Annotation
This 105-nucleotide sequence from Prunus avium belongs to the Rfam family "MIR6274 microRNA precursor family". Lineage of the source: Eukaryota > Streptophytina > Amygdaloideae > Amygdaleae > Prunus.

RNA sequence: GGAUAUCAUUGUUUUGCUAUUUCCGACCGAUAACACAAUUAUAUGUGAAAAAGUUAUCCCUCGUAUCAUUGUGUUAUUGGCCAGAAAUAGCAAAAAAUGUUAUCC
Numbered sequence: 001g002g003a004u005a006u007c008a009u010u011g012u013u014u015u016g017c018u019a020u021u022u023c024c025g026a027c028c029g030a031u032a033a034c035a036c037a038a039u040u041a042u043a044u045g046u047g048a049a050a051a052a053g054u055u056a057u058c059c060c061u062c063g064u065a066u067c068a069u070u071g072u073g074u075u076a077u078u079g080g081c082c083a084g085a086a087a088u089a090g091c092a093a094a095a096a097a098u099g100u101u102a103u104c105c
Stems, first nucleotide, its partner, number of pairs: 002104004012095009022085002025082001027080013041066005047060001050057001